chrB-b RNA: a 52-nucleotide sequence.
RNA sequence: CCGGGCUCGAUCGCAGUCGCCCGGUAUCCAAGGCAUAUCGCCCAAGCACUGC
Numbered sequence: 001c002c003g004g005g006c007u008c009g010a011u012c013g014c015a016g017u018c019g020c021c022c023g024g025u026a027u028c029c030a031a032g033g034c035a036u037a038u039c040g041c042c043c044a045a046g047c048a049c050u051g052c
Base pairs, nucleotide, nucleotide: 001024002023003022004021005020006019013052014051015050016049017048032042033041034040
Dot-bracket structure: ((((((......[[[[[.)))))).......(((.....))).....]]]]]